The record is a 221-nucleotide RNA from Parafrankia soli, which matches "c-di-AMP riboswitch aptamer (ydaO/yuaA leader)" in Rfam. NCBI's taxonomy places the organism under Bacteria, Bacillati, Actinomycetota, Frankiales, Parafrankia.
RNA sequence: AUCCGUUGGAAACAGAAACCCGAUGGCAGGAGCGGGGGAACCAAUACCCGGUCGCCGAUUCUGGGGACCUUGGGGUGAAGCCGCUAACGCCGACGGCACGAGGAGGAAGCUUGUCCUCCGUUGCCGAAGGCACAGGAUUUCCGGAGUUCCUGACUUGGCGGCCGGGCUUUUUCCCUGCCCGAACCCGACAGCUCACCUCGCAGGCGUGGGGAAGGAAAACU
Numbered sequence: 001a002u003c004c005g006u007u008g009g010a011a012a013c014a015g016a017a018a019c020c021c022g023a024u025g026g027c028a029g030g031a032g033c034g035g036g037g038g039a040a041c042c043a044a045u046a047c048c049c050g051g052u053c054g055c056c057g058a059u060u061c062u063g064g065g066g067a068c069c070u071u072g073g074g075g076u077g078a079a080g081c082c083g084c085u086a087a088c089g090c091c092g093a094c095g096g097c098a099c100g101a102g103g104a105g106g107a108a109g110c111u112u113g114u115c116c117u118c119c120g121u122u123g124c125c126g127a128a129g130g131c132a133c134a135g136g137a138u139u140u141c142c143g144g145a146g147u148u149c150c151u152g153a154c155u156u157g158g159c160g161g162c163c164g165g166g167c168u169u170u171u172u173c174c175c176u177g178c179c180c181g182a183a184c185c186c187g188a189c190a191g192c193u194c195a196c197c198u199c200g201c202a203g204g205c206g207u208g209g210g211g212a213a214g215g216a217a218a219a220c221u
Stems, first nucleotide, its partner, number of pairs: 002031003032201006042072002073186003081161007164180004

From the family's description: This family represents a conserved RNA structure found upstream of the ydaO and yuaA genes in Bacillus subtilis and related genes in other bacteria. The ydaO/yuaA element is thought to act as a genetic 'off' switch for the ydaO and yuaA genes in its native state. It is believed that the element may be triggered during osmotic shock leading to activation of ydaO, a predicted amino acid transporter gene, and members of the yuaA-yubG operon which code for KtrA and KtrB K+ transporters.